[Rfam]
RNA sequence: ACCAUGGGGUCACUGCGACCACCCCGUGAGGCCUAGGCCCAAGGUUCGCAUCCAACACUCCGGUUACGGAAAGGAUGCCCAAUG
Numbered sequence: 001a002c003c004a005u006g007g008g009g010u011c012a013c014u015g016c017g018a019c020c021a022c023c024c025c026g027u028g029a030g031g032c033c034u035a036g037g038c039c040c041a042a043g044g045u046u047c048g049c050a051u052c053c054a055a056c057a058c059u060c061c062g063g064u065u066a067c068g069g070a071a072a073g074g075a076u077g078c079c080c081a082a083u084g
Stems, first nucleotide, its partner, number of pairs: 005026006048078006